The family of this 89-nucleotide RNA from Peribacillus cavernae is "c-di-GMP-I riboswitch aptamer".
RNA sequence: AACAGAAAAAGGCAAACUUAUUGAAAAAUAAGGACGCAAAGUCACGGGUCUAAGGUUGGGUAUCUCACUAUGAUGGCUGGACUACCUGA
Numbered sequence: 001a002a003c004a005g006a007a008a009a010a011g012g013c014a015a016a017c018u019u020a021u022u023g024a025a026a027a028a029u030a031a032g033g034a035c036g037c038a039a040a041g042u043c044a045c046g047g048g049u050c051u052a053a054g055g056u057u058g059g060g061u062a063u064c065u066c067a068c069u070a071u072g073a074u075g076g077c078u079g080g081a082c083u084a085c086c087u088g089a
Base pairs, nucleotide, nucleotide: 012037013036017032018031019030020029021028022027040083041082042081043080045079046078047077048074049073050072055068056067058065
The match comes from Rfam's covariance-model search (79 bits).